[Rfam]
Nucleotides: 083
Base pairs, nucleotide, nucleotide: 001083002082003081004080005079006078007077010025011024012023013022027043028042029041030040060076061075062074063073064072
Number, partner (000 for none) and nucleotide at each position: 001083c002082c003081u004080u005079c006078u007077g008000u009000a010025g011024c012023u013022c014000a015000a016000u017000u018000g019000g020000u021000a022013g023012a024011g025010c026000a027043u028042g029041u030040g031000a032000c033000u034000g035000u036000a037000g038000a039000g040030u041029a042028u043027g044000c045000g046000g047000g048000u049000a050000u051000c052000a053000c054000a055000g056000g057000g058000u059000c060076g061075c062074u063073g064072g065000u066000u067000c068000g069000a070000u071000u072064c073063c074062g075061g076060c077007c078006g079005g080004a081003a082002g083001g
The record is an 83-nucleotide sequence from Trypanosoma brucei, which matches "tRNA" in Rfam. Taxonomically the source falls in Trypanozoon (Eukaryota, Euglenozoa, Metakinetoplastina, Trypanosomatida). Rfam 15.1 lists 5,335,975 matches to the family in 14,413 species. Rfam's curators put it in the seed alignment. Transfer RNA (tRNA) molecules are approximately 80 nucleotides in length.